[Rfam]
RNA sequence: GAAGAUCUUCGGGGCAGGGUGAAAUUCCCUACCGGCGGUAUAGCCCGCGAACUACUUAGGUGGUUGAUUUGGUGAGAUUCCAAAGCCGACAGUAAAGUCUGGAUGAGAGAAGAUAUUU
Numbered sequence: 001g002a003a004g005a006u007c008u009u010c011g012g013g014g015c016a017g018g019g020u021g022a023a024a025u026u027c028c029c030u031a032c033c034g035g036c037g038g039u040a041u042a043g044c045c046c047g048c049g050a051a052c053u054a055c056u057u058a059g060g061u062g063g064u065u066g067a068u069u070u071g072g073u074g075a076g077a078u079u080c081c082a083a084a085g086c087c088g089a090c091a092g093u094a095a096a097g098u099c100u101g102g103a104u105g106a107g108a109g110a111a112g113a114u115a116u117u118u
Base pairs, nucleotide, nucleotide: 003116005114006113007112008111009110010109017029018028019027031098032097033088034087035048036047037046038045043086044085051064052063068084069083070082071081072080090101091100092099
RNA: FMN riboswitch aptamer (RFN element)